RNA sequence: CUGCAUGUGGAAAUGCCUUCUCGUCAUUCCUUUUGGAGGAGGAGAACAUCCAUCACAUGCUACACGACCAACCUUACAGUAGAGGUUGACUAGUAGCAUAUUUCUCCUACAUUA
Number, nucleotide and partner (000 for none) at each position: 001c000002u000003g060004c059005a058006u057007g056008u055009g000010g000011a000012a000013a000014u000015g000016c042017c041018u040019u039020c038021u037022c036023g000024u000025c000026a000027u000028u000029c000030c000031u000032u000033u000034u000035g000036g022037a021038g020039g019040a018041g017042g016043a000044g000045a000046a000047c000048a000049u000050c000051c000052a000053u000054c000055a008056c007057a006058u005059g004060c003061u000062a000063c000064a094065c093066g000067a000068c000069c088070a087071a086072c085073c084074u083075u082076a000077c000078a000079g000080u000081a000082g075083a074084g073085g072086u071087u070088g069089a000090c000091u000092a000093g065094u064095a000096g000097c000098a000099u000100a000101u000102u000103u000104c000105u000106c000107c000108u000109a000110c000111a000112u000113u000114a000

This 114-nucleotide RNA from Jaculus jaculus belongs to the Rfam family "Small nucleolar RNA U109".
Taxonomically the source falls in Jaculus (Eukaryota, Craniata, Vertebrata, Tetrapoda).
Pairs were carried over by alignment from the consensus structure, which was predicted with WAR.
Rfam links the family to the GO terms RNA processing and nucleolus.